[Rfam]
RNA sequence: AUCCCAGUGAAGAUCUCAAGACCUACCGAUAGGAAGUGCCGUUUGACACUGUAAACAGCGGCUGCUUCUCUCUGCUGCAGGUACCCGUCAUUGACUACAACCUUUGUGGUUUGGUCAGGGAUGGAGAUCCCAUCUGCUGUAGUUUGAUUCAGCUGUGGUGCGUGAUUUAAAUCGGGUCUCUGAGGGAU
Numbered sequence: 001a002u003c004c005c006a007g008u009g010a011a012g013a014u015c016u017c018a019a020g021a022c023c024u025a026c027c028g029a030u031a032g033g034a035a036g037u038g039c040c041g042u043u044u045g046a047c048a049c050u051g052u053a054a055a056c057a058g059c060g061g062c063u064g065c066u067u068c069u070c071u072c073u074g075c076u077g078c079a080g081g082u083a084c085c086c087g088u089c090a091u092u093g094a095c096u097a098c099a100a101c102c103u104u105u106g107u108g109g110u111u112u113g114g115u116c117a118g119g120g121a122u123g124g125a126g127a128u129c130c131c132a133u134c135u136g137c138u139g140u141a142g143u144u145u146g147a148u149u150c151a152g153c154u155g156u157g158g159u160g161c162g163u164g165a166u167u168u169a170a171a172u173c174g175g176g177u178c179u180c181u182g183a184g185g186g187a188u
Stems, first nucleotide, its partner, number of pairs: 001188005075139001077137006085124005093116005099111004